[Rfam]
A member of the RNA family "tRNA" from Priestia koreensis, 82 nucleotides long. From the family's description: Transfer RNA (tRNA) molecules are approximately 80 nucleotides in length. The base pairs follow the family's consensus structure, which is taken from published work. Its Rfam clan is "tRNA clan".

RNA sequence: GGAGGGGUAGCGAAGAGGCUAAACGCGGCGGACUGUAAAUCCGCUCCCUCAGGGUUCGGCGGUUCGAAUCCGUCCCCCUCCA
Dot-bracket structure: (((((((..(((...........))).(((((.......))))).............(((((.......)))))))))))).
Notes:
Rfam classes the family as a transfer RNA. The organism belongs to Priestia, within Bacteria.